[Rfam]
Shown here is a 101-nucleotide sequence from Bacillus sp. SJS, a member of the family "TPP riboswitch aptamer (THI element)". The base pairs follow the family's consensus structure, which is taken from published work.

Nucleotides: 101
Stems, first nucleotide, its partner, number of pairs: 006089004011053004017025003033045004059082004065074002
Number, partner (000 for none) and nucleotide at each position: 001000u002000a003000c004000g005000a006089c007088c008087a009086c010000u011053a012052g013051g014050g015000g016000a017025g018024c019023c020000u021000u022000c023019g024018g025017c026000u027000g028000a029000g030000a031000a032000u033045g034044a035043a036042c037000a038000a039000u040000c041000u042036g043035u044034u045033c046000u047000a048000g049000a050014c051013c052012c053011u054000u055000u056000g057000a058000a059082c060081c061080u062079g063000u064000u065074a066073g067000u068000u069000a070000a071000u072000g073066c074065u075000u076000g077000c078000g079062u080061a081060g082059g083000g084000a085000u086009g087008u088007g089006g090000c091000u092000u093000g094000a095000u096000c097000g098000u099000u100000u101000a
Taxonomically the source falls in Bacillus (Bacteria, Bacillota, Bacilli, Caryophanales).